[Rfam]
RNA sequence: UGCUAGGCUUGACCGGGAUGCUUGGCGUAUCCUUGUAUACCGAAACCGUCAAUACGCGGAGGUGACAGCAAGGGGCGGCGCCGUGGAAACCUCAAGCCCACUGAGUGACGAUGAGAUUCUGUCUUGCGGGAUUAGUGUCCAUGUCCAGAGCCGUCGGAGGAUGGCCGAGUUCAUGCUAAUCGGGGAAACCGGGUCAGGUCCUGACGGGAGCAGCCUUACCCUGAACUACUAAAGUUCGCAGGGUAGCGGAGUCGAGAAGCGAUGUGUUAAACUUGACGUGGAAAUGACGUCCACCUUUGUGGCCUAGCA
Numbered sequence: 001u002g003c004u005a006g007g008c009u010u011g012a013c014c015g016g017g018a019u020g021c022u023u024g025g026c027g028u029a030u031c032c033u034u035g036u037a038u039a040c041c042g043a044a045a046c047c048g049u050c051a052a053u054a055c056g057c058g059g060a061g062g063u064g065a066c067a068g069c070a071a072g073g074g075g076c077g078g079c080g081c082c083g084u085g086g087a088a089a090c091c092u093c094a095a096g097c098c099c100a101c102u103g104a105g106u107g108a109c110g111a112u113g114a115g116a117u118u119c120u121g122u123c124u125u126g127c128g129g130g131a132u133u134a135g136u137g138u139c140c141a142u143g144u145c146c147a148g149a150g151c152c153g154u155c156g157g158a159g160g161a162u163g164g165c166c167g168a169g170u171u172c173a174u175g176c177u178a179a180u181c182g183g184g185g186a187a188a189c190c191g192g193g194u195c196a197g198g199u200c201c202u203g204a205c206g207g208g209a210g211c212a213g214c215c216u217u218a219c220c221c222u223g224a225a226c227u228a229c230u231a232a233a234g235u236u237c238g239c240a241g242g243g244u245a246g247c248g249g250a251g252u253c254g255a256g257a258a259g260c261g262a263u264g265u266g267u268u269a270a271a272c273u274u275g276a277c278g279u280g281g282a283a284a285u286g287a288c289g290u291c292c293a294c295c296u297u298u299g300u301g302g303c304c305u306a307g308c309a
Base pairs, nucleotide, nucleotide: 001309002308003307004306005305006304007303008302009301010065012063013062014061015033016032017031018030019029020028021027040059041058042057068300069299070298071297072296073295074294077291078290079289080288082286083285084284089279090278092276093275094274095273096272098266100265101264105260106259109256115253116252117251118250119249120248121247122246123242124241125240126239127238128237129236130235132232133231134230135229137226140175141174142173143172146169150165151164152163153162154161155160180224181223182222183221184220185219191216192215193214194213199208200207201206
RNA: Archaeal signal recognition particle RNA
Organism: Methanomassiliicoccales archaeon